The family of this 63-nucleotide sequence from Propithecus coquereli is "U7 small nuclear RNA". On this family, see Marz et al., Genomics Proteomics Bioinformatics 2007: "U7 snRNAs: a computational survey". Rfam 15.1 lists 10,439 matches to the family in 569 species. NCBI's taxonomy places the organism under Eukaryota, Vertebrata, Gnathostomata, Primates, Propithecus. Pairs were carried over by alignment from the consensus structure, which was predicted with PFOLD.
RNA sequence: AAAUGUUAUAGCUCUUUUAGAAUUUGUCUAGAAGGUUUUCUAGGUUUUUACUGGGAACCCAUA
Numbered sequence: 001a002a003a004u005g006u007u008a009u010a011g012c013u014c015u016u017u018u019a020g021a022a023u024u025u026g027u028c029u030a031g032a033a034g035g036u037u038u039u040c041u042a043g044g045u046u047u048u049u050a051c052u053g054g055g056a057a058c059c060c061a062u063a
Stems, first nucleotide, its partner, number of pairs: 034060002037057007